Description
The family of this 88-nucleotide RNA sequence from Prunus yedoensis is "MIR6288 microRNA precursor family". Lineage of the source: Eukaryota > Streptophytina > Tracheophyta > Spermatophyta > Prunus yedoensis. A search with the family's covariance model found it, with a score of 75 bits. Gene Ontology terms of the family: miRNA-mediated post-transcriptional gene silencing and RISC complex.
RNA sequence: UCAAAACUAGCCACUUGUCAUUUUCUAAUUGGUUCUUAUAAAAAUUACACUAAGAAUCAAUUAGAAAAUAACAAGUAGCUGGUUUUGA
Numbered sequence: 001u002c003a004a005a006a007c008u009a010g011c012c013a014c015u016u017g018u019c020a021u022u023u024u025c026u027a028a029u030u031g032g033u034u035c036u037u038a039u040a041a042a043a044a045u046u047a048c049a050c051u052a053a054g055a056a057u058c059a060a061u062u063a064g065a066a067a068a069u070a071a072c073a074a075g076u077a078g079c080u081g082g083u084u085u086u087g088a
Base pairs, nucleotide, nucleotide: 002087003086004085005084006083007082008081009080010079011078013076014075015074016073017072018071020069021068022067023066024065025064026063027062028061029060030059031058032057033056034055035054036053037052038051